[Rfam]
RNA sequence: CUUAGCCUUUGGGGCAAGGUGAAAAAGAGAAAUCUUUUGAUUCCUGACCGGCGGUACAGCCCGCGAGCCGUUAUACGGCUGAUCUGGUGUAAUUCCAGAGCCGACAGUAUAGUCUGGAUGGUAAAAGGCGUAU
Number, nucleotide and partner (000 for none) at each position: 001c000002u000003u000004a000005g129006c128007c127008u126009u125010u124011g000012g000013g000014g000015c000016a000017a045018g044019g043020u000021g000022a000023a000024a000025a000026a000027g000028a000029g000030a000031a000032a000033u000034c000035u000036u000037u000038u000039g000040a000041u000042u000043c019044c018045u017046g000047a113048c112049c103050g102051g064052c063053g062054g061055u000056a000057c000058a000059g101060c100061c054062c053063g052064c051065g000066a000067g079068c078069c077070g000071u000072u000073a000074u000075a000076c000077g069078g068079c067080u000081g000082a000083u099084c098085u097086g096087g095088u000089g000090u000091a000092a000093u000094u000095c087096c086097a085098g084099a083100g060101c059102c050103g049104a000105c116106a115107g114108u000109a000110u000111a000112g048113u047114c107115u106116g105117g000118a000119u000120g000121g000122u000123a000124a010125a009126a008127g007128g006129c005130g000131u000132a000133u000

FMN riboswitch aptamer (RFN element): a 133-nucleotide RNA sequence from Sporomusa termitida.
Taxonomically the source falls in Sporomusa (Bacteria, Bacillota, Selenomonadales, Sporomusaceae).
A search with the family's covariance model found it, with a score of 105 bits.
From the family's description: The RFN element is a highly conserved domain that is found frequently in the 5'-untranslated regions of prokaryotic mRNAs that encode for flavin mononucleotide (FMN) biosynthesis and transport proteins.